[Rfam]
RNA sequence: AUGCAGACAACAUACUUCCUUGCUAUCCCAUAUUUUAUAUAAUGCUAUGGAAUGUAAAGAAGUAUGUAUUUUGUGU
Numbered sequence: 001a002u003g004c005a006g007a008c009a010a011c012a013u014a015c016u017u018c019c020u021u022g023c024u025a026u027c028c029c030a031u032a033u034u035u036u037a038u039a040u041a042a043u044g045c046u047a048u049g050g051a052a053u054g055u056a057a058a059g060a061a062g063u064a065u066g067u068a069u070u071u072u073g074u075g076u
Stems, first nucleotide, its partner, number of pairs: 007070001010067009020057004028050005
RNA: mir-1 microRNA precursor family
Organism: Lottia gigantea